[Rfam]
RNA sequence: CUCGCCGCUAUUCGGGGAAGUGGGGCACUGGAGAGCGCUUCAGCACUGCCUCUGGUGGUCGGUUUGUGGAUGGGGGCGGG
Number, nucleotide and partner (000 for none) at each position: 001c080002u079003c078004g077005c076006c075007g000008c073009u072010a071011u070012u069013c068014g067015g000016g065017g064018a063019a000020g000021u000022g000023g060024g059025g000026c057027a056028c055029u054030g053031g052032a051033g050034a000035g049036c048037g044038c043039u000040u000041c000042a000043g038044c037045a000046c000047u000048g036049c035050c033051u032052c031053u030054g029055g028056u027057g026058g000059u024060c023061g000062g000063u018064u017065u016066g000067u014068g013069g012070a011071u010072g009073g008074g000075g006076g005077c004078g003079g002080g001